Shown here is an 83-nucleotide sequence from Ornithorhynchus anatinus, a member of the family "mir-1422 microRNA precursor family". Lineage of the source: Eukaryota > Metazoa > Teleostomi > Monotremata > Ornithorhynchus. Its family is annotated with RISC complex and miRNA-mediated post-transcriptional gene silencing in the Gene Ontology. It is one of the family's seed sequences.
[Rfam]
RNA sequence: AUGAUUCUGGUUUAAGUCGUGAUGAGUUUUUCUAUCAGUACAGAUAAUCUGGAAAAACUCGUCAUGACUGAUACCAUGAUCCU
Numbered sequence: 001a002u003g004a005u006u007c008u009g010g011u012u013u014a015a016g017u018c019g020u021g022a023u024g025a026g027u028u029u030u031u032c033u034a035u036c037a038g039u040a041c042a043g044a045u046a047a048u049c050u051g052g053a054a055a056a057a058c059u060c061g062u063c064a065u066g067a068c069u070g071a072u073a074c075c076a077u078g079a080u081c082c083u
Base pairs, nucleotide, nucleotide: 003081004080005079006078008076009075010074011073013071015069016068017067018066019065020064021063022062028056029055030054031053032052033051